[Rfam]
RNA sequence: GUUCCCUGUGAUGUUUCAAACCAUGCUAAUACCGAGACUCAUCAUUGAUGAAUAUCUUAUUUUAAUUUCUGAGGGAACC
Numbered sequence: 001g002u003u004c005c006c007u008g009u010g011a012u013g014u015u016u017c018a019a020a021c022c023a024u025g026c027u028a029a030u031a032c033c034g035a036g037a038c039u040c041a042u043c044a045u046u047g048a049u050g051a052a053u054a055u056c057u058u059a060u061u062u063u064a065a066u067u068u069c070u071g072a073g074g075g076a077a078c079c
Stems, first nucleotide, its partner, number of pairs: 001078005
RNA: Small nucleolar RNA snoR53Y
Organism: Aquilegia coerulea